Description:
Rfam assigns this 71-nucleotide sequence from Spodoptera exigua to the family "mir-11 microRNA precursor family". Rfam links the family to the GO terms RISC complex, negative regulation of cell death and miRNA-mediated post-transcriptional gene silencing. Lineage of the source: Eukaryota > Pancrustacea > Neoptera > Eumetabola > Spodoptera. Its Rfam clan is "mir-6 clan". The family's consensus secondary structure was predicted with RNAalifold. A reference for the family is Cai et al. (2010), "Novel microRNAs in silkworm (Bombyx mori)", Funct Integr Genomics.
RNA sequence: UCUCGUGGCUAGCACUUUGGCUGUGACUUGUGUGUCGAAGUCACAUCACAGUCAGAGUUCUAGCUACGCGG
Numbered sequence: 001u002c003u004c005g006u007g008g009c010u011a012g013c014a015c016u017u018u019g020g021c022u023g024u025g026a027c028u029u030g031u032g033u034g035u036c037g038a039a040g041u042c043a044c045a046u047c048a049c050a051g052u053c054a055g056a057g058u059u060c061u062a063g064c065u066a067c068g069c070g071g
Base pairs, nucleotide, nucleotide: 004068005067006066009063010062011061012060014058015057016056017055021051022050023049024048025047026046030044031043032042